[Rfam]
RNA sequence: AAUCAAAUAAAUACGGUACCUCAUAUAUUUCCUGAGAAUAUGGCUUGGAAGUUUCUACCCAGCACCGUAAAUGCUGGACUAUGAGGGAGGGUGAAUCGUUG
Numbered sequence: 001a002a003u004c005a006a007a008u009a010a011a012u013a014c015g016g017u018a019c020c021u022c023a024u025a026u027a028u029u030u031c032c033u034g035a036g037a038a039u040a041u042g043g044c045u046u047g048g049a050a051g052u053u054u055c056u057a058c059c060c061a062g063c064a065c066c067g068u069a070a071a072u073g074c075u076g077g078a079c080u081a082u083g084a085g086g087g088a089g090g091g092u093g094a095a096u097c098g099u100u101g
Stems, first nucleotide, its partner, number of pairs: 019086007029050004034046003059077006
RNA: Purine riboswitch aptamer
Organism: Lentibacillus populi